[Rfam]
RNA sequence: GUGGUCUGAGGGUAAGCUGGUUUUAGUACGAGAGGAACAAGCCAGCGGCGCCACUGGUCGAUCGGUUGUCUGGCAAGGCACUGCCGAGCAGCUACGCGCUAACGGAUAAGGGCUGAAAGCAUCUAAGCCCGAAGCUGUGCCUGAAAAGAGACCACUCUGAGGACCCUCGUAAAAGACGAGUUUGAUAGAGUCGGGGUGUACGCACCGAGGCAACGAGGUGUUCAGCCCGCGACUACUAAAAGUCCGCUCA
Dot-bracket structure: (((((((..((((..((((((((...............))))))))(((((...(((....((((((((((....)))))..)))))....))).)))))..(((....(((((...........)))))....))).))))......))))))).....((((.((((.......)))).....(((((((((((.....(((((..(....)..)))))....))).))))).)))...)))).....
RNA: Archaeal large subunit ribosomal RNA, nucleotides 2657 to 2906
Organism: Methanothrix harundinacea